[Rfam]
Shown here is a 108-nucleotide RNA from Anaerocolumna chitinilytica, a member of the family "NiCo (Nickel/Cobalt) riboswitch aptamer".
A search with the family's covariance model found it, with a score of 72 bits.
On this family, see Furukawa et al., Mol Cell 2015: "Bacterial riboswitches cooperatively bind Ni(2+) or Co(2+) ions and control expression of heavy metal transporters".
Taxonomically the source falls in Anaerocolumna (Bacteria, Bacillota, Clostridia, Lachnospirales).
Rfam links the family to the GO terms metal ion homeostasis and cobalt ion binding.
Its Rfam clan is "NiCo_riboswitches".
RNA sequence: ACAGUACAAACUGAGCAGGCGAUAAAUCCUGCAUUGUAGGGUUUAUGGGGCCGGGCUACGAAUUUAGUAGCAGCAGAUUGCCGUCUUGUGCACAUCUGUGGGACAGUU
Numbered sequence: 001a002c003a004g005u006a007c008a009a010a011c012u013g014a015g016c017a018g019g020c021g022a023u024a025a026a027u028c029c030u031g032c033a034u035u036g037u038a039g040g041g042u043u044u045a046u047g048g049g050g051c052c053g054g055g056c057u058a059c060g061a062a063u064u065u066a067g068u069a070g071c072a073g074c075a076g077a078u079u080g081c082c083g084u085c086u087u088g089u090g091c092a093c094a095u096c097u098g099u100g101g102g103a104c105a106g107u108u
Stems, first nucleotide, its partner, number of pairs: 010107004016102001018052003022046009055071005073099006